[Rfam]
RNA sequence: AAAGAAAAGCAGAAGCACCCGCUUCUCGCCUUGGUGACUAGAGUGACCGGGCUGACGAGUAGAAAUUUAGUCGAGUGAUCGACGUUAGCGGGGUGUGGUUUGCACCCCGCUUUUUUGCUUCUU
Numbered sequence: 001a002a003a004g005a006a007a008a009g010c011a012g013a014a015g016c017a018c019c020c021g022c023u024u025c026u027c028g029c030c031u032u033g034g035u036g037a038c039u040a041g042a043g044u045g046a047c048c049g050g051g052c053u054g055a056c057g058a059g060u061a062g063a064a065a066u067u068u069a070g071u072c073g074a075g076u077g078a079u080c081g082a083c084g085u086u087a088g089c090g091g092g093g094u095g096u097g098g099u100u101u102g103c104a105c106c107c108c109g110c111u112u113u114u115u116u117g118c119u120u121c122u123u
Base pairs, nucleotide, nucleotide: 011026012025013024014023015022016021028052029051030050034047035046037044038043088110089109090108091107092106093105094104095103096102097101
Shown here is a 123-nucleotide sequence from Limosilactobacillus secaliphilus, a member of the family "Ribosomal protein L20 leader". Pairs were carried over by alignment from the consensus structure, which was predicted with CMfinder. This family is a putative r-protein leader autoregulatory structure found in B. subtilis and other low-GC Gram-positive bacteria. The match comes from Rfam's covariance-model search (71 bits). It is annotated as a cis-regulatory leader. NCBI's taxonomy places the organism under Bacteria, Bacillota, Bacilli, Lactobacillales, Limosilactobacillus. On this family, see Zengel and Lindahl, Prog Nucleic Acid Res Mol Biol 1994: "Diverse mechanisms for regulating ribosomal protein synthesis in Escherichia coli".